[Rfam]
A member of the RNA family "Plant small nucleolar RNA U3", 218 nucleotides long.
RNA sequence: ACGACCUUACUUGAACAGGAUCUGUUCUAUAGGCUCGUACCGCUGCAUCCUUUACCAAUAAGGAGGCAAGCACUUCAGUCUGGUUGAUGCAUCUGACCUCUGGGCCAGAGCGUGAUUAACGGCCAGGAUUCCCUUAUGGGGGCAAUCCACGGCUGUAGAGGAUCGUUCCUGCCUUGCUCAUGCUUGUGCAGGGUGGCCCAGAGGUUGUCUGACAGACU
Dot-bracket structure: (((.(((.....((((((...))))))...))).).)).....(((.(((((.......))))).))).........(((((.............((((((((((((.((((.......(((((.(((((((((....)))).)))))..)))))........))))((((((..(......)..).))))).)))))))))))).......))))).
On this family, see Zwieb, Nucleic Acids Res 1997: "The uRNA database". Rfam's curators write: Small nucleolar RNAs (snoRNAs) are involved in the processing and modification of rRNA in the nucleolus. There are two main classes of snoRNAs: the box C/D class, and the box H/ACA class. U3 snoRNA is a member of the box C/D class.